[Rfam]
Record summary:
Shown here is a 98-nucleotide RNA, a member of the family "pemK RNA". By type it is a cis-regulatory element.
RNA sequence: AUAAUGAUACUUCCUUAUCGCCGCAGUCCGAGCGUUCAAAGCGUCGCAGGCAACGGGUAAGGCUCCGGCAGACCGCCGGAGGGGUGGAACUCCCAUGA
Dot-bracket structure: ...........((((((((....................................)))))))(((.(((.....))).)))(((.......))))...